[Rfam]
RNA sequence: UGGAAGUGAUGAAAUAGAGAUAAUUGGAUGUCUCUUUGAAUGGAGUGUGUGUGAUAAAUGGAAUUUAAACCAAAUCAAACUGGGGGUGGGGUUUGGGGAACGUGUGUGUGUGCGUGCAUGUAUAGAAAAGGCUUUAAAUGGGGGCACUGAUAAUGCAGUGCUGAUUCCGGAGUGCAUCUGAGGCAUGUUGUUACGUUCUGGGGUGCCACUUUACAACAUUGCCAAUGAUUAAAGCCCAAAACAAGCCCACCAAGACAAGCCUAGGCAUCCUAAAUCUCUAACAGGUUCAUUAAUGAAAGUGAUCCUGUGAUCUGAUCCAA
Numbered sequence: 001u002g003g004a005a006g007u008g009a010u011g012a013a014a015u016a017g018a019g020a021u022a023a024u025u026g027g028a029u030g031u032c033u034c035u036u037u038g039a040a041u042g043g044a045g046u047g048u049g050u051g052u053g054a055u056a057a058a059u060g061g062a063a064u065u066u067a068a069a070c071c072a073a074a075u076c077a078a079a080c081u082g083g084g085g086g087u088g089g090g091g092u093u094u095g096g097g098g099a100a101c102g103u104g105u106g107u108g109u110g111u112g113c114g115u116g117c118a119u120g121u122a123u124a125g126a127a128a129a130g131g132c133u134u135u136a137a138a139u140g141g142g143g144g145c146a147c148u149g150a151u152a153a154u155g156c157a158g159u160g161c162u163g164a165u166u167c168c169g170g171a172g173u174g175c176a177u178c179u180g181a182g183g184c185a186u187g188u189u190g191u192u193a194c195g196u197u198c199u200g201g202g203g204u205g206c207c208a209c210u211u212u213a214c215a216a217c218a219u220u221g222c223c224a225a226u227g228a229u230u231a232a233a234g235c236c237c238a239a240a241a242c243a244a245g246c247c248c249a250c251c252a253a254g255a256c257a258a259g260c261c262u263a264g265g266c267a268u269c270c271u272a273a274a275u276c277u278c279u280a281a282c283a284g285g286u287u288c289a290u291u292a293a294u295g296a297a298a299g300u301g302a303u304c305c306u307g308u309g310a311u312c313u314g315a316u317c318c319a320a
Base pairs, nucleotide, nucleotide: 001319002318003317004316186218187217188216189215190214191213193211195207197205198203
RNA: Small Cajal body-specific RNA 7